[Rfam]
RNA sequence: GCUAGCUCGGGCCGAGGAGCCGCAGUCGGAGGAGGGGAGGAGGAAGAAGAGAAGGAAGAGGAGAGGGGCCGCGGUGGCGACUCGGGCUCGGAAGCCGGGCCUCGGACGGGUGAGGCUGCUGUGUGCGCAGACAGUGCUCCAGCCGCGCGCGCGCCCCAGGCCCUGGCCCGGGCCUCGGCUCCAGAAGGAAGAGGAGACAGCCUAGGCGCCGAAGAGAGCGGGCCGCCCCGCAGUCCGAGCCGGAGAGGGAGCGCGAGCCGGCCGGCUCCGGCCGCCUCCGAAACCAUGAACUUUCUGCCU
Numbered sequence: 001g002c003u004a005g006c007u008c009g010g011g012c013c014g015a016g017g018a019g020c021c022g023c024a025g026u027c028g029g030a031g032g033a034g035g036g037g038a039g040g041a042g043g044a045a046g047a048a049g050a051g052a053a054g055g056a057a058g059a060g061g062a063g064a065g066g067g068g069c070c071g072c073g074g075u076g077g078c079g080a081c082u083c084g085g086g087c088u089c090g091g092a093a094g095c096c097g098g099g100c101c102u103c104g105g106a107c108g109g110g111u112g113a114g115g116c117u118g119c120u121g122u123g124u125g126c127g128c129a130g131a132c133a134g135u136g137c138u139c140c141a142g143c144c145g146c147g148c149g150c151g152c153g154c155c156c157c158a159g160g161c162c163c164u165g166g167c168c169c170g171g172g173c174c175u176c177g178g179c180u181c182c183a184g185a186a187g188g189a190a191g192a193g194g195a196g197a198c199a200g201c202c203u204a205g206g207c208g209c210c211g212a213a214g215a216g217a218g219c220g221g222g223c224c225g226c227c228c229c230g231c232a233g234u235c236c237g238a239g240c241c242g243g244a245g246a247g248g249g250a251g252c253g254c255g256a257g258c259c260g261g262c263c264g265g266c267u268c269c270g271g272c273c274g275c276c277u278c279c280g281a282a283a284c285c286a287u288g289a290a291c292u293u294u295c296u297g298c299c300u
Stems, first nucleotide, its partner, number of pairs: 002034002006031003010027003013022002046298001048296002051293002054285002058278004065269006071262002075260004084254001086252004096237005103230003108157003112154001114152001115150002118146002121143001122141002125137004159227003165224006173214001175212004180206002184201001
Dot-bracket structure: .((..(((.(((((......))..))).))).))...........(.((.((.((..((((...((((((((..((((.....(.((((......(((((..(((..(((.(.(((.((.(((.((((.....))))..)).).))..)).).)))).(((...((((((..(.((((.((..(................)...))..)))).)....))))))))))))..)))))...........)))).)..)))))).)))))).....)))).....))......)).)).)..
Rfam assigns this 300-nucleotide RNA sequence from Ursus maritimus to the family "Vascular endothelial growth factor (VEGF) IRES A". The base pairs follow the family's consensus structure, which is taken from published work. From the family's description: This family represents the vascular endothelial growth factor (VEGF) internal ribosome entry site (IRES) A. VEGF is an endothelial cell mitogen with many crucial functions such as embryogenic development and wound healing. The 5' UTR of VEGF mRNA contains two IRES elements which are able to promote efficient translation at the AUG start codon, this family represents IRES A. On this family, see Huez et al., Mol Cell Biol 1998: "Two independent internal ribosome entry sites are involved in translation initiation of vascular endothelial growth factor mRNA".